[Rfam]
The family of this 69-nucleotide RNA sequence from Streptomyces sp. Go-475 is "ASpks TB sRNA". The family's consensus secondary structure is taken from published work. On this family, see Arnvig and Young, Mol Microbiol 2009: "Identification of small RNAs in Mycobacterium tuberculosis".

RNA sequence: CUUGACCGACCCGAGCCACAGCGGCUCCUCCCGGCCCUGCCCGUACGUGGCCAGGACGGCCUGCGCCUC
Numbered sequence: 001c002u003u004g005a006c007c008g009a010c011c012c013g014a015g016c017c018a019c020a021g022c023g024g025c026u027c028c029u030c031c032c033g034g035c036c037c038u039g040c041c042c043g044u045a046c047g048u049g050g051c052c053a054g055g056a057c058g059g060c061c062u063g064c065g066c067c068u069c
Base pairs, nucleotide, nucleotide: 014026015025016024017023028065030063032059037054038053039052041050042049043048